RNA sequence: UUGAAGGAGCAAUACCGACCCUCUUAUUGUAUCAAGAGGGUCGGUAUUGCUCCUUCAUUUCG
Numbered sequence: 001u002u003g004a005a006g007g008a009g010c011a012a013u014a015c016c017g018a019c020c021c022u023c024u025u026a027u028u029g030u031a032u033c034a035a036g037a038g039g040g041u042c043g044g045u046a047u048u049g050c051u052c053c054u055u056c057a058u059u060u061c062g
Stems, first nucleotide, its partner, number of pairs: 002057018022037004

The family of this 62-nucleotide sequence from Papaver nudicaule is "Plastid-psbA-2 3UTR RNA".
From the family's description: Plastid psbA-2 is a non-coding RNA (ncRNA) present in plastids. It was identified in inverted repeat sequences in the 3 prime untranslate region (3UTR) of photosystem II quinone-binding protein (psbA).
It is annotated as a cis-regulatory element.
A search with the family's covariance model found it, with a score of 58 bits.
For this family Rfam cites "Retrograde signaling in plants: A critical review focusing on the GUN pathway and beyond" (Richter et al., Plant Commun, 2023).